[Rfam]
RNA sequence: GCGUCCACGGGCGCACGCCGGCCAACGAGGUUUCGUCCGCCGGCGUUUUUCCG
Numbered sequence: 001g002c003g004u005c006c007a008c009g010g011g012c013g014c015a016c017g018c019c020g021g022c023c024a025a026c027g028a029g030g031u032u033u034c035g036u037c038c039g040c041c042g043g044c045g046u047u048u049u050u051c052c053g
Stems, first nucleotide, its partner, number of pairs: 016045007025036004
RNA: ffh sRNA
Organism: Sphingomonas piscis